[Rfam]
RNA sequence: UUGCUGUAAUGGCUGUUGUCGGAAGGGUCAAGACCUUGUCGCGGCUCUAGUUCAGCGCUUACAGUUUGAGGUGUCCUGUUCGAUUCCUGCGGUCGGUGUAUGGCAGCCAUGGGAAGCCUGGCAUUGUCGUCGCCAGCAAUGAGCUGGGGGACCGCUGGAGGGUAGAAAUACAGCACAGCGUCCAGCCCGUGGCGAAGGCGAAGGGGACCGCAUCUCGCUGGUGUUUACGAGCGUUGGAAUUUGGCCGUUGGUUGGCUUCAACUGCAACGAUAAAAAUU
Numbered sequence: 001u002u003g004c005u006g007u008a009a010u011g012g013c014u015g016u017u018g019u020c021g022g023a024a025g026g027g028u029c030a031a032g033a034c035c036u037u038g039u040c041g042c043g044g045c046u047c048u049a050g051u052u053c054a055g056c057g058c059u060u061a062c063a064g065u066u067u068g069a070g071g072u073g074u075c076c077u078g079u080u081c082g083a084u085u086c087c088u089g090c091g092g093u094c095g096g097u098g099u100a101u102g103g104c105a106g107c108c109a110u111g112g113g114a115a116g117c118c119u120g121g122c123a124u125u126g127u128c129g130u131c132g133c134c135a136g137c138a139a140u141g142a143g144c145u146g147g148g149g150g151a152c153c154g155c156u157g158g159a160g161g162g163u164a165g166a167a168a169u170a171c172a173g174c175a176c177a178g179c180g181u182c183c184a185g186c187c188c189g190u191g192g193c194g195a196a197g198g199c200g201a202a203g204g205g206g207a208c209c210g211c212a213u214c215u216c217g218c219u220g221g222u223g224u225u226u227a228c229g230a231g232c233g234u235u236g237g238a239a240u241u242u243g244g245c246c247g248u249u250g251g252u253u254g255g256c257u258u259c260a261a262c263u264g265c266a267a268c269g270a271u272a273a274a275a276a277u278u
Base pairs, nucleotide, nucleotide: 001015003013004012016273017272018271019270020269021268026262028260030258031257032256035255036254039251040250042247043246044245045244046243049240051238052237053236054235055234064222067217068216069215070214071213072212073211074210075206076205077204079202080201081200082199084196085195086194087192088191089190090189091188092187094136095134096133097132098131100130101129103125106122107121108120109119111118112117137141143186144185145184146183147182148181153180154179155178156177157176162171163170164169
This 278-nucleotide sequence from Pichia membranifaciens belongs to the Rfam family "Fungal signal recognition particle RNA".
Gene Ontology terms of the family: signal recognition particle, endoplasmic reticulum targeting, signal recognition particle, plasma membrane targeting and SRP-dependent cotranslational protein targeting to membrane, signal sequence recognition.
Its Rfam clan is "SRP clan".
A search with the family's covariance model found it, with a score of 110 bits.
NCBI's taxonomy places the organism under Eukaryota, Fungi, Pichiomycetes, Pichiaceae, Pichia.